Rfam assigns this 35-nucleotide RNA from Neogale vison to the family "Iron response element I".

RNA sequence: CUGUCUCUUGCCUCACCAGUGCUUGGACGGAACAG
Numbered sequence: 001c002u003g004u005c006u007c008u009u010g011c012c013u014c015a016c017c018a019g020u021g022c023u024u025g026g027a028c029g030g031a032a033c034a035g
Stems, first nucleotide, its partner, number of pairs: 001035004006031003010028001013026003017021001
The family's RNA type in Rfam is cis-regulatory element. A reference for the family is Hentze et al. (1987), "Identification of the iron-responsive element for the translational regulation of human ferritin mRNA", Science.